Small nucleolar RNA SNORD89: a 115-nucleotide RNA from Cyanistes caeruleus. Rfam classes the family as a C/D-box small nucleolar RNA. The source organism's lineage runs through Eukaryota, Deuterostomia, Archosauria, Paridae and Cyanistes. Rfam's curators write: snoRNA HBII-289 belongs to the family of C/D snoRNAs. It is the human orthologue of the mouse MBII-289 and has no identified RNA target. Its family is annotated with nucleolus and RNA processing in the Gene Ontology.
RNA sequence: GCUGAGGAGUGAUGACAAUAAAAGGCCGAAUUGCAGUGCCUCCAGCAAACAGUUUGCUCUCUCGGAAGCACAAUGACAAAAAUCACCCGAAGCGAAUCACUAGUCUGACCUCAGU
Numbered sequence: 001g002c003u004g005a006g007g008a009g010u011g012a013u014g015a016c017a018a019u020a021a022a023a024g025g026c027c028g029a030a031u032u033g034c035a036g037u038g039c040c041u042c043c044a045g046c047a048a049a050c051a052g053u054u055u056g057c058u059c060u061c062u063c064g065g066a067a068g069c070a071c072a073a074u075g076a077c078a079a080a081a082a083u084c085a086c087c088c089g090a091a092g093c094g095a096a097u098c099a100c101u102a103g104u105c106u107g108a109c110c111u112c113a114g115u
Base pairs, nucleotide, nucleotide: 001115002114003113004112005111006110007109014105015104016103025034026033035101036100037099038098041095042094043092046089055070056069057068058067059065075083